[Rfam]
RNA sequence: CUUACCCUGCAGUGUUCGAGACUUGUCAUAUAUUCCUUGAACCAUUCUUUUGCACCGGUUACGGAAAUUUGUUCGAUGGGCGAGAGCGUCGCUAGUCCGAUGAACCCGAAAUUGAACUAACUGUGACCACCUGAGCCUCUUGGUUCGGGAUGCCGGCAAGACGGCACAGGCGGGGCCCUA
Numbered sequence: 001c002u003u004a005c006c007c008u009g010c011a012g013u014g015u016u017c018g019a020g021a022c023u024u025g026u027c028a029u030a031u032a033u034u035c036c037u038u039g040a041a042c043c044a045u046u047c048u049u050u051u052g053c054a055c056c057g058g059u060u061a062c063g064g065a066a067a068u069u070u071g072u073u074c075g076a077u078g079g080g081c082g083a084g085a086g087c088g089u090c091g092c093u094a095g096u097c098c099g100a101u102g103a104a105c106c107c108g109a110a111a112u113u114g115a116a117c118u119a120a121c122u123g124u125g126a127c128c129a130c131c132u133g134a135g136c137c138u139c140u141u142g143g144u145u146c147g148g149g150a151u152g153c154c155g156g157c158a159a160g161a162c163g164g165c166a167c168a169g170g171c172g173g174g175g176c177c178c179u180a
Stems, first nucleotide, its partner, number of pairs: 005175006012167004017163002034150003038147006057128003061124004071117007082106001087102005
This 180-nucleotide RNA from Duganella sp. 1224 belongs to the Rfam family "6S / SsrS RNA".
Pairs were carried over by alignment from the consensus structure, which is taken from published work.
About the family: E. coli 6S RNA was the first non coding RNA to be sequenced, but its function was unknown until recently.
For this family Rfam cites "6S RNA regulates E. coli RNA polymerase activity" (Wassarman and Storz, Cell, 2000).
A search with the family's covariance model found it, with a score of 64 bits.
Rfam classes the family as a non-coding RNA gene.
NCBI's taxonomy places the organism under Bacteria, Betaproteobacteria, Burkholderiales, Oxalobacteraceae, Duganella.